[Rfam]
RNA sequence: GGCGGGAGAGCAGGGAACGAAAUCCAAGCGCAGCUGAGGUGCCGAGCGGAAGACAGCUGCUUUUGGGAUUCCGUUGCCCGCUGUCGCGCGU
Numbered sequence: 001g002g003c004g005g006g007a008g009a010g011c012a013g014g015g016a017a018c019g020a021a022a023u024c025c026a027a028g029c030g031c032a033g034c035u036g037a038g039g040u041g042c043c044g045a046g047c048g049g050a051a052g053a054c055a056g057c058u059g060c061u062u063u064u065g066g067g068a069u070u071c072c073g074u075u076g077c078c079c080g081c082u083g084u085c086g087c088g089c090g091u
Stems, first nucleotide, its partner, number of pairs: 009082003013078001017074003021070003024066004030060007

mir-191 microRNA precursor family: a 91-nucleotide RNA sequence from Alligator mississippiensis. Its family is annotated with miRNA-mediated post-transcriptional gene silencing and RISC complex in the Gene Ontology. Lineage of the source: Eukaryota > Chordata > Teleostomi > Dipnotetrapodomorpha > Alligator.